Annotation: A member of the RNA family "MIR4245 microRNA precursor family" from Arabidopsis lyrata, 127 nucleotides long. Taxonomically the source falls in Arabidopsis (Eukaryota, Streptophyta, Streptophytina, Mesangiospermae). Gene Ontology terms of the family: miRNA-mediated post-transcriptional gene silencing and RISC complex. Rfam's curators put it in the seed alignment.
[Rfam]
RNA sequence: GAAUUGUCAGUAUAAAUCUUUGAUCCAAUAUACUUUUGAUUAGUAGAUGAGUUUUUUUUGACAAUUAUCAAUUAUAUUAAAGAGUGAUCAAUUAGUAUUGGAACAAAGUUUUAUACUGACAAUUCGA
Numbered sequence: 001g002a003a004u005u006g007u008c009a010g011u012a013u014a015a016a017u018c019u020u021u022g023a024u025c026c027a028a029u030a031u032a033c034u035u036u037u038g039a040u041u042a043g044u045a046g047a048u049g050a051g052u053u054u055u056u057u058u059u060g061a062c063a064a065u066u067a068u069c070a071a072u073u074a075u076a077u078u079a080a081a082g083a084g085u086g087a088u089c090a091a092u093u094a095g096u097a098u099u100g101g102a103a104c105a106a107a108g109u110u111u112u113a114u115a116c117u118g119a120c121a122a123u124u125c126g127a
Base pairs, nucleotide, nucleotide: 001125002124003123004122005121006120007119008118009117010116011115012114013113014112015111016110018108019107020106021105022104024102025101026100027099028098029097030096031095033084034083035082036081037080043075044074045073046072048070049069050068